[Rfam]
This 121-nucleotide sequence belongs to the Rfam family "Group II catalytic intron D1-D4-2". For this family Rfam cites "The ins and outs of group II introns" (Bonen and Vogel, Trends Genet, 2001).
RNA sequence: GGUGGAACCGACCCACCAGAAUCUGCUUAUAGGAGCUGGUUCUAAACCACUUUUCUGAUGCAUCCAAAGUAAUUUGUUUGUGUGAAGCGAGGGAAGAAAAGGCAGACUUGAUCUGUCAGGU
Numbered sequence: 001g002g003u004g005g006a007a008c009c010g011a012c013c014c015a016c017c018a019g020a021a022u023c024u025g026c027u028u029a030u031a032g033g034a035g036c037u038g039g040u041u042c043u044a045a046a047c048c049a050c051u052u053u054u055c056u057g058a059u060g061c062a063u064c065c066a067a068a069g070u071a072a073u074u075u076g077u078u079u080g081u082g083u084g085a086a087g088c089g090a091g092g093g094a095a096g097a098a099a100a101g102g103c104a105g106a107c108u109u110g111a112u113c114u115g116u117c118a119g120g121u
Base pairs, nucleotide, nucleotide: 001017002016003015004014005013018043019042020041021040022039023038025036026035027034028033048120050096051095053093054092055091056090058083060081061080062079064076066074067073101117102116103115104114105113
The pairing is the family consensus, mapped onto this sequence. Group II introns are found in rRNA, tRNA and mRNA of organelles in fungi, plants and protists, and also in mRNA in bacteria.